[Rfam]
RNA sequence: GGUUCCGUAGCUCAGCAGGAUAGAGCAGCGGUUUCCUAAACCGAAGGUCGGGGGUUCGAAUCCCUCCGGGACCG
Numbered sequence: 001g002g003u004u005c006c007g008u009a010g011c012u013c014a015g016c017a018g019g020a021u022a023g024a025g026c027a028g029c030g031g032u033u034u035c036c037u038a039a040a041c042c043g044a045a046g047g048u049c050g051g052g053g054g055u056u057c058g059a060a061u062c063c064c065u066c067c068g069g070g071a072c073c074g
Stems, first nucleotide, its partner, number of pairs: 001073007010026004029043004050066005
Shown here is a 74-nucleotide RNA from Lichenibacterium ramalinae, a member of the family "tRNA". Its family is annotated with triplet codon-amino acid adaptor activity in the Gene Ontology. The family's consensus secondary structure is taken from published work. The family has 954 seed sequences and 5,335,975 matches in Rfam 15.1. Rfam's curators write: Transfer RNA (tRNA) molecules are approximately 80 nucleotides in length.